The family of this 255-nucleotide sequence from Rhodovibrio salinarum is "permuted transfer-messenger RNA". The family's RNA type in Rfam is non-coding RNA gene.
RNA sequence: GGGCAUAAACGGCACGUUCACUAGCCGUAGCGGACCCGGGGGCAGUACCCGGCGCCUCCACCAACAUCACCGACCCGCGUAUCGCCGUUCCCCUCUUUCGGCGUUGCACGUCGGGUCGGGCUGCCACCUCAUGGGGGCGAACCAGGAUCGACGCGCGGCAAAAGACGUGUCUUUGCCCCGGCAUGGCAUCCGCCGUUAUCGGGCCAUCCAAGAAGUGCGAACGACAAUCGCGCUCCGGUUGCCGCGGCCGCGUAA
Numbered sequence: 001g002g003g004c005a006u007a008a009a010c011g012g013c014a015c016g017u018u019c020a021c022u023a024g025c026c027g028u029a030g031c032g033g034a035c036c037c038g039g040g041g042g043c044a045g046u047a048c049c050c051g052g053c054g055c056c057u058c059c060a061c062c063a064a065c066a067u068c069a070c071c072g073a074c075c076c077g078c079g080u081a082u083c084g085c086c087g088u089u090c091c092c093c094u095c096u097u098u099c100g101g102c103g104u105u106g107c108a109c110g111u112c113g114g115g116u117c118g119g120g121c122u123g124c125c126a127c128c129u130c131a132u133g134g135g136g137g138c139g140a141a142c143c144a145g146g147a148u149c150g151a152c153g154c155g156c157g158g159c160a161a162a163a164g165a166c167g168u169g170u171c172u173u174u175g176c177c178c179c180g181g182c183a184u185g186g187c188a189u190c191c192g193c194c195g196u197u198a199u200c201g202g203g204c205c206a207u208c209c210a211a212g213a214a215g216u217g218c219g220a221a222c223g224a225c226a227a228u229c230g231c232g233c234u235c236c237g238g239u240u241g242c243c244g245c246g247g248c249c250g251c252g253u254a255a
Base pairs, nucleotide, nucleotide: 001178002177003176004175005174014168015167016166017165026157027156028155030154031153032152036052037051038050039049040048053139054138055137056136057135058134059133179195180194181193182192
Rfam's curators write: Bacterial tmRNA, also known as 10Sa RNA or SsrA, is named for its dual tRNA and mRNA-like properties.